[Rfam]
RNA sequence: GUACAUGACUCGGGGUGCCCUUCCACGCGAAGGCUGAGAAAUACCCGUACCACCUGAUCUGGAUAAUGCCAGCGUAGGGGGCCGAAAUUUGGCCUA
Numbered sequence: 001g002u003a004c005a006u007g008a009c010u011c012g013g014g015g016u017g018c019c020c021u022u023c024c025a026c027g028c029g030a031a032g033g034c035u036g037a038g039a040a041a042u043a044c045c046c047g048u049a050c051c052a053c054c055u056g057a058u059c060u061g062g063a064u065a066a067u068g069c070c071a072g073c074g075u076a077g078g079g080g081g082c083c084g085a086a087a088u089u090u091g092g093c094c095u096a
Base pairs, nucleotide, nucleotide: 006084007083009081010080011047012046013045014044016041017034018033019032021030053078054077055076056075059072060071061070062069
Rfam assigns this 96-nucleotide RNA from Pluralibacter gergoviae to the family "TPP riboswitch aptamer (THI element)". Taxonomically the source falls in Pluralibacter (Bacteria, Pseudomonadati, Gammaproteobacteria, Enterobacteriaceae). A search with the family's covariance model found it, with a score of 60 bits. Gene Ontology term of the family: thiamine pyrophosphate binding.